[Rfam]
mir-130 microRNA precursor family: a 126-nucleotide RNA sequence from Vombatus ursinus. For this family Rfam cites "Embryonic stem cell-specific MicroRNAs" (Houbaviy et al., Dev Cell, 2003). Gene Ontology terms of the family: RISC complex and miRNA-mediated post-transcriptional gene silencing. The organism belongs to Vombatus, within Eukaryota.
RNA sequence: UCAAGGCCAGAGCUCUAUUCACUGUACCACCUAACUGCCCCUGACAAUUUUCUUAACAUAGCACCUUCCAAAGAUUUUUCUGUGGGGGCAGCUAGGUGGUGCAGUGGAUAGAGCACUGGCCCUGGA
Numbered sequence: 001u002c003a004a005g006g007c008c009a010g011a012g013c014u015c016u017a018u019u020c021a022c023u024g025u026a027c028c029a030c031c032u033a034a035c036u037g038c039c040c041c042u043g044a045c046a047a048u049u050u051u052c053u054u055a056a057c058a059u060a061g062c063a064c065c066u067u068c069c070a071a072a073g074a075u076u077u078u079u080c081u082g083u084g085g086g087g088g089c090a091g092c093u094a095g096g097u098g099g100u101g102c103a104g105u106g107g108a109u110a111g112a113g114c115a116c117u118g119g120c121c122c123u124g125g126a
Stems, first nucleotide, its partner, number of pairs: 001126002005121006012114022